[Rfam]
RNA sequence: UGCUCCUCGUGUUCACUGUUGGCCUUGAUGUCUGUGCAUGUGGAUCAUAAGGCACGCGGUGAAUGCCAAGAGCG
Numbered sequence: 001u002g003c004u005c006c007u008c009g010u011g012u013u014c015a016c017u018g019u020u021g022g023c024c025u026u027g028a029u030g031u032c033u034g035u036g037c038a039u040g041u042g043g044a045u046c047a048u049a050a051g052g053c054a055c056g057c058g059g060u061g062a063a064u065g066c067c068a069a070g071a072g073c074g
Stems, first nucleotide, its partner, number of pairs: 003072003009066008018057002023052005030045001
About this RNA
Rfam assigns this 74-nucleotide RNA sequence from Cryptotermes secundus to the family "mir-124 microRNA precursor family". On this family, see Lagos-Quintana et al., Curr Biol 2002: "Identification of tissue-specific microRNAs from mouse". The base pairs follow the family's consensus structure, which was predicted with PFOLD.